[Rfam]
RNA sequence: GAUCAAGAAGUUCGACGUGAGGCCUCCCGGCUCGUCGACUAGCAACCGCGCAGACUCGCGCACGGUGCUUCCGGGAGAAGAUCGGCCGGCGCCGCAACCGCGCGCCGGAAGUGCGAUUC
Numbered sequence: 001g002a003u004c005a006a007g008a009a010g011u012u013c014g015a016c017g018u019g020a021g022g023c024c025u026c027c028c029g030g031c032u033c034g035u036c037g038a039c040u041a042g043c044a045a046c047c048g049c050g051c052a053g054a055c056u057c058g059c060g061c062a063c064g065g066u067g068c069u070u071c072c073g074g075g076a077g078a079a080g081a082u083c084g085g086c087c088g089g090c091g092c093c094g095c096a097a098c099c100g101c102g103c104g105c106c107g108g109a110a111g112u113g114c115g116a117u118u119c
Stems, first nucleotide, its partner, number of pairs: 001083004009040001012038005021032002041069003046065003050059002086108007094101002